[Rfam]
RNA sequence: GUGAAGUUGAUCACAACAAACAUAACCCCUUUUUUGACCGUGAAAGAUUUCUCCCAUCCCCUUUUGUUCGUAUUUAGGAAAAGACCUUGCAGAACCGGAGCUGCAAGGUCUUU
Numbered sequence: 001g002u003g004a005a006g007u008u009g010a011u012c013a014c015a016a017c018a019a020a021c022a023u024a025a026c027c028c029c030u031u032u033u034u035u036g037a038c039c040g041u042g043a044a045a046g047a048u049u050u051c052u053c054c055c056a057u058c059c060c061c062u063u064u065u066g067u068u069c070g071u072a073u074u075u076a077g078g079a080a081a082a083g084a085c086c087u088u089g090c091a092g093a094a095c096c097g098g099a100g101c102u103g104c105a106a107g108g109u110c111u112u113u
Stems, first nucleotide, its partner, number of pairs: 003051006011043004017036004022031001067079001069077001083110010
Shown here is a 113-nucleotide RNA sequence from Bacillus sp. MUM 116, a member of the family "RNA Staph. aureus E (RoxS)". NCBI's taxonomy places the organism under Bacteria, Bacillati, Bacilli, Caryophanales, Bacillus. For this family Rfam cites "A search for small noncoding RNAs in Staphylococcus aureus reveals a conserved sequence motif for regulation" (Geissmann et al., Nucleic Acids Res, 2009). The family's RNA type in Rfam is small RNA. From the family's description: It was shown to be regulated by the presence of nitric oxide (NO). In Bacillus subtilis it controls expression of genes with functions related to oxidative stress and oxidation-reduction reactions and it was renamed RoxS (for related to oxidative stress).